[Rfam]
RNA: STAXI RNA
Organism: Erwinia billingiae
Nucleotides: 151
Stems, first nucleotide, its partner, number of pairs: 002016006024045005031060005046055003070090004078106003092103003110131005118146002121143001133142001
Number, partner (000 for none) and nucleotide at each position: 001000c002016g003015u004014c005013g006012u007011c008000u009000c010000u011007g012006a013005c014004g015003a016002c017000c018000a019000c020000c021000a022000a023000u024045g025044a026043u027042u028041c029000a030000c031060u032059g033058g034057c035056c036000u037000g038000a039000g040000a041028g042027a043026a044025u045024c046055g047054c048053c049000u050000u051000c052000g053048g054047g055046u056035g057034g058033c059032u060031g061000a062000a063000c064000a065000u066000a067000a068000c069000a070090c071089u072088c073087c074000u075000g076000u077000a078106g079105c080104c081000u082000g083000c084000a085000a086000g087073g088072g089071a090070g091000a092103a093102c094101a095000c096000a097000u098000c099000a100000g101094u102093g103092u104080g105079g106078u107000a108000a109000a110131u111130c112129u113128g114127c115000u116000c117000a118146c119145c120000u121143u122000u123000g124000g125000a126000a127114g128113c129112a130111g131110a132000u133142a134000u135000c136000g137000u138000c139000a140000a141000u142133u143121a144000c145119g146118g147000c148000u149000c150000c151000u